RNA sequence: ACACCCGUAUUAUUGCUGUUAUGGGUUUGAACCGAGCUUAGCCUUGUUCAUUUUUUUACACAAUAGCUCUGUAAAAAAUUGAACACACCCCACUGAGCACCCUGUCGACAUGCGGGCAAAGCGCCUCUGAAAGGCCUUGAAACGCCCCAAAAAUGGCCAUCAUGCCCCACUACAGGGCAU
Numbered sequence: 001a002c003a004c005c006c007g008u009a010u011u012a013u014u015g016c017u018g019u020u021a022u023g024g025g026u027u028u029g030a031a032c033c034g035a036g037c038u039u040a041g042c043c044u045u046g047u048u049c050a051u052u053u054u055u056u057u058a059c060a061c062a063a064u065a066g067c068u069c070u071g072u073a074a075a076a077a078a079u080u081g082a083a084c085a086c087a088c089c090c091c092a093c094u095g096a097g098c099a100c101c102c103u104g105u106c107g108a109c110a111u112g113c114g115g116g117c118a119a120a121g122c123g124c125c126u127c128u129g130a131a132a133g134g135c136c137u138u139g140a141a142a143c144g145c146c147c148c149a150a151a152a153a154u155g156g157c158c159a160u161c162a163u164g165c166c167c168c169a170c171u172a173c174a175g176g177g178c179a180u
Stems, first nucleotide, its partner, number of pairs: 023100001025098004034093001036091001041089001044085001046084003052078008162180004167175001
RNA: Pseudomonas sRNA P1
Organism: Ectopseudomonas mendocina